[Rfam]
RNA: PyrR binding site
Organism: Acetilactobacillus jinshanensis
RNA sequence: AGGGUCUUUAAUCCUAGUCCUGUGAGGCUAGCAAGAUACCAAAUAAUUUUGCAAUGAAAUCAAUCAUUAAAAUUAUGAGGGGUCUGCUUGCCUAAAAGUAAGUAGGCCUUUUGAGU
Numbered sequence: 001a002g003g004g005u006c007u008u009u010a011a012u013c014c015u016a017g018u019c020c021u022g023u024g025a026g027g028c029u030a031g032c033a034a035g036a037u038a039c040c041a042a043a044u045a046a047u048u049u050u051g052c053a054a055u056g057a058a059a060u061c062a063a064u065c066a067u068u069a070a071a072a073u074u075a076u077g078a079g080g081g082g083u084c085u086g087c088u089u090g091c092c093u094a095a096a097a098g099u100a101a102g103u104a105g106g107c108c109u110u111u112u113g114a115g116u
Stems, first nucleotide, its partner, number of pairs: 004037005014031006044075007053068005078111014